[Rfam]
RNA: mir-1788 microRNA precursor family
RNA sequence: ACCUGCGCCGGGCUUGUUUUCAGUUGCCUGCGGCUGAUUAAUAGGACUCAGGCAGCUAAAGCAAGUCUGGGGCAUGA
Numbered sequence: 001a002c003c004u005g006c007g008c009c010g011g012g013c014u015u016g017u018u019u020u021c022a023g024u025u026g027c028c029u030g031c032g033g034c035u036g037a038u039u040a041a042u043a044g045g046a047c048u049c050a051g052g053c054a055g056c057u058a059a060a061g062c063a064a065g066u067c068u069g070g071g072g073c074a075u076g077a
Base pairs, nucleotide, nucleotide: 004074006072008070010068011067012066013065014064015063016062017061018060019059020058022057023056024055025054026053027052028051029050030049032047